Record summary: Shown here is a 119-nucleotide RNA from Hibiscus syriacus, a member of the family "Small nucleolar RNA snoR104". It scores 83 bits against the family's covariance model.

[Rfam]
RNA sequence: GGGGAGCAUCACAGUAAUGAGGUGUUUACCUGAUACAAUCUUCCUACAUAGAACUCCGUAUUUUCCUGCUUGUAGUAACUGAGCAAGUUUUUGCAAGUCUCAUAUAUCCUGAUACAUGA
Numbered sequence: 001g002g003g004g005a006g007c008a009u010c011a012c013a014g015u016a017a018u019g020a021g022g023u024g025u026u027u028a029c030c031u032g033a034u035a036c037a038a039u040c041u042u043c044c045u046a047c048a049u050a051g052a053a054c055u056c057c058g059u060a061u062u063u064u065c066c067u068g069c070u071u072g073u074a075g076u077a078a079c080u081g082a083g084c085a086a087g088u089u090u091u092u093g094c095a096a097g098u099c100u101c102a103u104a105u106a107u108c109c110u111g112a113u114a115c116a117u118g119a
Base pairs, nucleotide, nucleotide: 001031002030003029005027006025007024008023009022010021055112056111068098069097070096071095072094073093074092075091077089078088079087